[Rfam]
Nucleotides: 204
Stems, first nucleotide, its partner, number of pairs: 018053006032042003054196004064104004068096002070093003073089006111192005120182005125154003130151008158177008
Number, partner (000 for none) and nucleotide at each position: 001000g002000c003000a004000a005000a006000c007000u008000a009000a010000c011000a012000a013000u014000u015000c016000g017000a018053u019052u020051g021050g022049u023048g024000g025000a026000a027000u028000g029000a030000u031000g032042g033041g034040g035000u036000a037000a038000c039000g040034c041033c042032c043000a044000g045000a046000a047000a048023c049022g050021c051020c052019a053018a054196c055195c056194u057193u058000g059000a060000u061000a062000c063000u064104c065103c066102g067101a068096c069095u070093g071092g072091c073089u074088c075087u076086g077085c078084u079000c080000a081000a082000a083000a084078g085077g086076c087075a088074g089073a090000u091072g092071u093070u094000c095069a096068g097000a098000a099000g100000c101067u102066c103065g104064g105000u106000g107000a108000a109000g110000u111192c112191g113190g114189c115188a116000g117000a118000g119000a120182g121181u122180u123179a124178c125154c126153g127152u128000c129000u130151u131150a132149c133148a134147g135146u136145u137144g138000u139000g140000a141000a142000a143000a144137c145136a146135a147134c148133u149132g150131u151130a152127a153126c154125g155000a156000a157000a158177g159176c160175u161174a162173u163172c164171c165170a166000g167000a168000g169000g170165u171164g172163g173162a174161u175160g176159g177158u178124g179123u180122a181121g182120c183000c184000u185000a186000u187000a188115u189114g190113c191112c192111g193057g194056a195055g196054g197000u198000c199000u200000a201000c202000a203000a204000a
Shown here is a 204-nucleotide sequence, a member of the family "Group II catalytic intron D1-D4-5". On this family, see Chu et al., EMBO J 2001: "Control of branch-site choice by a group II intron". Rfam describes the family as follows. Group II introns are found in rRNA, tRNA and mRNA of organelles in fungi, plants and protists, and also in mRNA in bacteria. The sequence is in the family's curated seed alignment.